[Rfam]
RNA sequence: AGCCUGUGAUGACAGACUCAAGGCUUGUUUCUCAAACAUUCGCAUUGGCCGCCUGAGAGCUUUCGUCUUGCCAGGCUUGAGAGCUUAUGCUGUUUCAACAUAUUCCUUCCUUGGAUGUCUGAGGCC
Numbered sequence: 001a002g003c004c005u006g007u008g009a010u011g012a013c014a015g016a017c018u019c020a021a022g023g024c025u026u027g028u029u030u031c032u033c034a035a036a037c038a039u040u041c042g043c044a045u046u047g048g049c050c051g052c053c054u055g056a057g058a059g060c061u062u063u064c065g066u067c068u069u070g071c072c073a074g075g076c077u078u079g080a081g082a083g084c085u086u087a088u089g090c091u092g093u094u095u096c097a098a099c100a101u102a103u104u105c106c107u108u109c110c111u112u113g114g115a116u117g118u119c120u121g122a123g124g125c126c
Stems, first nucleotide, its partner, number of pairs: 002125003059084006
Source information: Rfam assigns this 126-nucleotide RNA from Dendrobium nobile to the family "Small nucleolar RNA SNORD14". A search with the family's covariance model found it, with a score of 77 bits. Gene Ontology terms of the family: nucleolus and RNA processing. From the family's description: U14 small nucleolar RNA (U14 snoRNA) is required for early cleavages of eukaryotic precursor rRNAs. It is annotated as a C/D-box small nucleolar RNA. On this family, see Samarsky et al., Nucleic Acids Res 1996: "An essential domain in Saccharomyces cerevisiae U14 snoRNA is absent in vertebrates, but conserved in other yeasts". The organism belongs to Dendrobium, within Eukaryota.